This 129-nucleotide sequence from Orycteropus afer belongs to the Rfam family "Small nucleolar RNA SNORA30/SNORA37 family".
Rfam describes the family as follows. The members of this family belong to the H/ACA class of snoRNAs that guide the sites of modification of uridines to pseudouridines. This family includes human ACA30 (SNORA30), ACA37 (SNORA37) and the mouse homolog MBI-26.
RNA sequence: CCAGCACUUACACAGGUCCUCCUCCAGACUGUGGGGCCAGGAUUUGGUAGCUGGUGCUGAGAGAAAACCCUUGGUUGCAACCUUGCCCUGGAACCAUGCCAGAGGCACCUGUCACUCAAUGGAACAGAG
Numbered sequence: 001c002c003a004g005c006a007c008u009u010a011c012a013c014a015g016g017u018c019c020u021c022c023u024c025c026a027g028a029c030u031g032u033g034g035g036g037c038c039a040g041g042a043u044u045u046g047g048u049a050g051c052u053g054g055u056g057c058u059g060a061g062a063g064a065a066a067a068c069c070c071u072u073g074g075u076u077g078c079a080a081c082c083u084u085g086c087c088c089u090g091g092a093a094c095c096a097u098g099c100c101a102g103a104g105g106c107a108c109c110u111g112u113c114a115c116u117c118a119a120u121g122g123a124a125c126a127g128a129g
Base pairs, nucleotide, nucleotide: 003058004057005056006055007054008053013046014045015044017042018041019040020039022036023035024034025033069122070121071119072118073117074116076114077113079112084107085106086105087104088102089101090100091099